The family of this 68-nucleotide RNA from Solanum commersonii is "Plastid-clpP 5UTR RNA". The family's consensus secondary structure was predicted with LocARNA. The organism belongs to Solanum, within Eukaryota. Plastid clpP is a non-coding RNA (ncRNA) recognised in plastids. It was found in the prime untranslated region (5UTR) of a protease complex subunit (clpP) in plastids, suggesting a posible cis-regulatory function.
[Rfam]
RNA sequence: AACUAUGUUCGUAUGAACAAAGAGAAGCAAAUUUAUUCUAUACUCGAUAAGUACCAAUUCGCUUGAUC
Numbered sequence: 001a002a003c004u005a006u007g008u009u010c011g012u013a014u015g016a017a018c019a020a021a022g023a024g025a026a027g028c029a030a031a032u033u034u035a036u037u038c039u040a041u042a043c044u045c046g047a048u049a050a051g052u053a054c055c056a057a058u059u060c061g062c063u064u065g066a067u068c
Stems, first nucleotide, its partner, number of pairs: 003022002006019005044066002051060001053058001